[Rfam]
RNA: Archaeal small subunit ribosomal RNA, nucleotides 883 to 1482
Organism: Acidianus manzaensis
RNA sequence: UGGCGGGGGAGCACCACAAGGGGUGGAACCUGCGGCUCAAUUGGAGUCAACGCCUGGAAUCUCACCGGGAGAGACCACAGGAUGACGGCCAGGCUAACGACCUUGCCAGACUCGUGGAGAGGAGGUGCAUGGCCGUCGCCAGCUCGUGUUGUGAAAUGUCCGGUUAAGUCCGGCAACGAGCGAGACCCCCACCAUUAGUUGGUAUCUCGGUCUCCGGAUCGAGACCACACUAGUGGGACUGCCACCGUUAAGGUGGAGGAAGGAGGGGGCCACGGCAGGUCAGCAUGCCCCGAAACUCCCGGGCCGCACGCGGGUUACAAUGGCAGGGACAGCGGGAUCCCUACCCCGAGAGGGGGCGGCAAUCCCUCAAACCCUGCCUCAGUUGGGAUCGAGGGCUGAAACUCGCCCUCGUGAACGAGGAAUCCCUAGUAACCGCACGUCAACAUCGUGCGGUGAAUACGUCCCUGCUCCUUGCACACACCGCCCGUCGCUCCACCCGAGUGAGGAAGAAGUGAGGCUUCUUGCCCUUCGGGGUGGGGAGUAGGAGCUUCUUCCUCGCGAGGGGGGAGAAGUCGUAACAAGGUAUCCGUAAGCUGGAAU
Numbered sequence: 001u002g003g004c005g006g007g008g009g010a011g012c013a014c015c016a017c018a019a020g021g022g023g024u025g026g027a028a029c030c031u032g033c034g035g036c037u038c039a040a041u042u043g044g045a046g047u048c049a050a051c052g053c054c055u056g057g058a059a060u061c062u063c064a065c066c067g068g069g070a071g072a073g074a075c076c077a078c079a080g081g082a083u084g085a086c087g088g089c090c091a092g093g094c095u096a097a098c099g100a101c102c103u104u105g106c107c108a109g110a111c112u113c114g115u116g117g118a119g120a121g122g123a124g125g126u127g128c129a130u131g132g133c134c135g136u137c138g139c140c141a142g143c144u145c146g147u148g149u150u151g152u153g154a155a156a157u158g159u160c161c162g163g164u165u166a167a168g169u170c171c172g173g174c175a176a177c178g179a180g181c182g183a184g185a186c187c188c189c190c191a192c193c194a195u196u197a198g199u200u201g202g203u204a205u206c207u208c209g210g211u212c213u214c215c216g217g218a219u220c221g222a223g224a225c226c227a228c229a230c231u232a233g234u235g236g237g238a239c240u241g242c243c244a245c246c247g248u249u250a251a252g253g254u255g256g257a258g259g260a261a262g263g264a265g266g267g268g269g270c271c272a273c274g275g276c277a278g279g280u281c282a283g284c285a286u287g288c289c290c291c292g293a294a295a296c297u298c299c300c301g302g303g304c305c306g307c308a309c310g311c312g313g314g315u316u317a318c319a320a321u322g323g324c325a326g327g328g329a330c331a332g333c334g335g336g337a338u339c340c341c342u343a344c345c346c347c348g349a350g351a352g353g354g355g356g357c358g359g360c361a362a363u364c365c366c367u368c369a370a371a372c373c374c375u376g377c378c379u380c381a382g383u384u385g386g387g388a389u390c391g392a393g394g395g396c397u398g399a400a401a402c403u404c405g406c407c408c409u410c411g412u413g414a415a416c417g418a419g420g421a422a423u424c425c426c427u428a429g430u431a432a433c434c435g436c437a438c439g440u441c442a443a444c445a446u447c448g449u450g451c452g453g454u455g456a457a458u459a460c461g462u463c464c465c466u467g468c469u470c471c472u473u474g475c476a477c478a479c480a481c482c483g484c485c486c487g488u489c490g491c492u493c494c495a496c497c498c499g500a501g502u503g504a505g506g507a508a509g510a511a512g513u514g515a516g517g518c519u520u521c522u523u524g525c526c527c528u529u530c531g532g533g534g535u536g537g538g539g540a541g542u543a544g545g546a547g548c549u550u551c552u553u554c555c556u557c558g559c560g561a562g563g564g565g566g567g568a569g570a571a572g573u574c575g576u577a578a579c580a581a582g583g584u585a586u587c588c589g590u591a592a593g594c595u596g597g598a599a600u
Stems, first nucleotide, its partner, number of pairs: 001478002003475003007472007016462002020426005025318001027316008035307002041056001043054002065302007075117004079112002087107003091103003121291002124289004130285002132280003135276004142181006148157003160173004187268004192236007202225002206223007239259002242256005322378007334366003339359002344355004385416001390411007432454008481582001483579001486575002489572001491569004496564003501559013517542011584597001587596001589594001